[Rfam]
RNA sequence: AAACUUUACUUGGCCUCCAGCAAAAGUAAACCUUUUGCUAAAAAUUAUCAAAUUGUCGGGAACACCUUAAAGCUAUUUUAACGUAGGGGCAAGGGAUUAGGUAACUAAUAGAUGGCUCAGGUAAUGACUCGAGGUAUAGUAAUAUCAAAAUAGAUGCACGAAAGGAAAUAGGUAACCCGCAGCCAACUGCCUUGAUAUUGUAGAUGCAAGUCAAGCUCUUAAUUCAAGGUAGGCAGUUCAUCGACUAAACGGUAAUUGGUGUUAUUAGAGCUAUAGUGCUUUAAUAAUGCUUAAGAUAUAGUCAGACCUUACUUGAAAAAGUACA
Numbered sequence: 001a002a003a004c005u006u007u008a009c010u011u012g013g014c015c016u017c018c019a020g021c022a023a024a025a026g027u028a029a030a031c032c033u034u035u036u037g038c039u040a041a042a043a044a045u046u047a048u049c050a051a052a053u054u055g056u057c058g059g060g061a062a063c064a065c066c067u068u069a070a071a072g073c074u075a076u077u078u079u080a081a082c083g084u085a086g087g088g089g090c091a092a093g094g095g096a097u098u099a100g101g102u103a104a105c106u107a108a109u110a111g112a113u114g115g116c117u118c119a120g121g122u123a124a125u126g127a128c129u130c131g132a133g134g135u136a137u138a139g140u141a142a143u144a145u146c147a148a149a150a151u152a153g154a155u156g157c158a159c160g161a162a163a164g165g166a167a168a169u170a171g172g173u174a175a176c177c178c179g180c181a182g183c184c185a186a187c188u189g190c191c192u193u194g195a196u197a198u199u200g201u202a203g204a205u206g207c208a209a210g211u212c213a214a215g216c217u218c219u220u221a222a223u224u225c226a227a228g229g230u231a232g233g234c235a236g237u238u239c240a241u242c243g244a245c246u247a248a249a250c251g252g253u254a255a256u257u258g259g260u261g262u263u264a265u266u267a268g269a270g271c272u273a274u275a276g277u278g279c280u281u282u283a284a285u286a287a288u289g290c291u292u293a294a295g296a297u298a299u300a301g302u303c304a305g306a307c308c309u310u311a312c313u314u315g316a317a318a319a320a321g322u323a324c325a
Stems, first nucleotide, its partner, number of pairs: 001007002018026001043257005049251001054181002057179004065172003182237002187232004197223003241304001243303005259290009310323005
Dot-bracket structure: ((...))..........(.......)................(((((.(....((.((((....(((......................................................................................................)))...))))))((...((((......(((.....................))).....))))...))...[.[[[[[...).))))).(((((((((..............)))))))))........]]]]]].....(((((....)))))..
Rfam assigns this 325-nucleotide sequence from Gnomoniopsis smithogilvyi to the family "Group I catalytic intron". A search with the family's covariance model found it, with a score of 92 bits. The organism belongs to Gnomoniopsis, within Eukaryota. On this family, see Cech, Annu Rev Biochem 1990: "Self-splicing of group I introns". The base pairs follow the family's consensus structure, which is taken from published work. From the family's description: Group I catalytic introns are large self-splicing ribozymes.